[Rfam]
RNA sequence: GUGAGGUGAUGACACAGUUUAUCCAUUCUCUGAGUGCAGUGGAGCUGCCCUCCUGCAGCACCCCAGCUCCUGUUCUAGGGUCUGGGUGCUGUGCAGCCUCCAGACAUCCUGCAGCAUCCCAGUGUCCUGCUGGGGGCUGCUGUGGUGUGUGGCUGGCUGCCUGCAGGAGGGUAGCAGUGCUGGCAGGGUUGCCCCAAAGAGGGGCUCCAUCCUCACUGGGACGAGGGAUGGUGUCUGAUCAC
Numbered sequence: 001g002u003g004a005g006g007u008g009a010u011g012a013c014a015c016a017g018u019u020u021a022u023c024c025a026u027u028c029u030c031u032g033a034g035u036g037c038a039g040u041g042g043a044g045c046u047g048c049c050c051u052c053c054u055g056c057a058g059c060a061c062c063c064c065a066g067c068u069c070c071u072g073u074u075c076u077a078g079g080g081u082c083u084g085g086g087u088g089c090u091g092u093g094c095a096g097c098c099u100c101c102a103g104a105c106a107u108c109c110u111g112c113a114g115c116a117u118c119c120c121a122g123u124g125u126c127c128u129g130c131u132g133g134g135g136g137c138u139g140c141u142g143u144g145g146u147g148u149g150u151g152g153c154u155g156g157c158u159g160c161c162u163g164c165a166g167g168a169g170g171g172u173a174g175c176a177g178u179g180c181u182g183g184c185a186g187g188g189u190u191g192c193c194c195c196a197a198a199g200a201g202g203g204g205c206u207c208c209a210u211c212c213u214c215a216c217u218g219g220g221a222c223g224a225g226g227g228a229u230g231g232u233g234u235c236u237g238a239u240c241a242c
Base pairs, nucleotide, nucleotide: 010241011240012239017234018233020231023227024226026225027224028223030220031219034216035215038181039180040179041178044175045174046173047172048171049170050169051168052167053166054165055164056163057162061088063086064085066082068080069079070078071077093160094159095158096157097156098155106146107145111140112139113138114137115136117135118134119133120132121131122130123129124128183214186213187211188210189209191207194204195203
Notes
Rfam assigns this 242-nucleotide sequence from Rhipidura dahli to the family "Small nucleolar RNA SNORD17". NCBI's taxonomy places the organism under Eukaryota, Gnathostomata, Tetrapoda, Theropoda, Rhipidura. From the family's description: The snoRNA HBI-43 belongs to the C/D family of snoRNAs, guiding 2'O-ribose methylation at position U3797 of the 28S rRNA. Pseudouridylation in position U3797 is predicted to be guided by the H/ACA snoRNA ACA48. The literature on the family includes a 2001 paper in EMBO J by Huttenhofer et al., "RNomics: an experimental approach that identifies 201 candidates for novel, small, non-messenger RNAs in mouse". Pairs were carried over by alignment from the consensus structure, which was predicted with RNAalifold. Rfam classes the family as a C/D-box small nucleolar RNA.